Nucleotides: 120
Stems, first nucleotide, its partner, number of pairs: 001015005016041006023034004046119001048091006054080001057077002061073003097116006
Number, partner (000 for none) and nucleotide at each position: 001015g002014a003013g004012g005011g006000u007000a008000g009000c010000a011005c012004c013003c014002u015001c016041g017040g018039a019038g020037c021036c022000g023034c024033c025032a026031u027000g028000c029000a030000g031026g032025u033024g034023g035000a036021g037020g038019c039018u040017c041016c042000a043000a044000a045000c046119c047000a048091c049090c050089u051088u052087a053086a054080g055000c056000u057077g058076c059000g060000g061073u062072g063071g064000a065000c066000a067000a068000a069000a070000g071063c072062u073061a074000c075000g076058g077057u078000g079000a080054u081000g082000a083000a084000c085000g086053u087052u088051a089050a090049g091048g092000g093000a094000a095000a096000a097116g098115u099114c100113g101112g102111g103000g104000c105000g106000a107000a108000g109000a110000c111102c112101u113100c114099g115098g116097c117000a118000g119046g120000u
Rfam assigns this 120-nucleotide RNA sequence from a Peptococcaceae bacterium to the family "Group II catalytic intron D1-D4-2". It scores 94 bits against the family's covariance model. The base pairs follow the family's consensus structure. Taxonomically the source falls in Peptococcaceae (Bacteria, Bacillati, Bacillota, Eubacteriales). Rfam 15.1 lists 1,231 matches to the family in 625 species. Gene Ontology term of the family: Group II intron splicing.